[Rfam]
RNA sequence: GGGUGCGGCGCGUACGGACGCGCAGCAGGUACCGGAGCAGUCGGGCCGCUGCUU
Numbered sequence: 001g002g003g004u005g006c007g008g009c010g011c012g013u014a015c016g017g018a019c020g021c022g023c024a025g026c027a028g029g030u031a032c033c034g035g036a037g038c039a040g041u042c043g044g045g046c047c048g049c050u051g052c053u054u
Base pairs, nucleotide, nucleotide: 005026006025008023009022010021011020012019035054036053037052038051039050040049041048
Description
This 54-nucleotide RNA from Anaeromyxobacter sp. Fw109-5 belongs to the Rfam family "nhaA-I RNA". Lineage of the source: Bacteria > Myxococcota > Myxococcales > Anaeromyxobacteraceae > Anaeromyxobacter. About the family: Acidobacteria, Alphaproteobacteria, Betaproteobacteria and Gammaproteobacteria, Verrucomicrobia, cand. division NC10. Rfam classes the family as a riboswitch. It scores 41 bits against the family's covariance model.